This 52-nucleotide RNA sequence from Poseidonocella sedimentorum belongs to the Rfam family "ffh sRNA". The match comes from Rfam's covariance-model search (65 bits). The family's consensus secondary structure is taken from published work. It is annotated as a small RNA.
RNA sequence: CUGUUCCGGGAUCGCCCUCCACCAGCGCGUUGCGCCCGUGGGGGCGUUUGUG
Numbered sequence: 001c002u003g004u005u006c007c008g009g010g011a012u013c014g015c016c017c018u019c020c021a022c023c024a025g026c027g028c029g030u031u032g033c034g035c036c037c038g039u040g041g042g043g044g045c046g047u048u049u050g051u052g
Stems, first nucleotide, its partner, number of pairs: 016044007025035004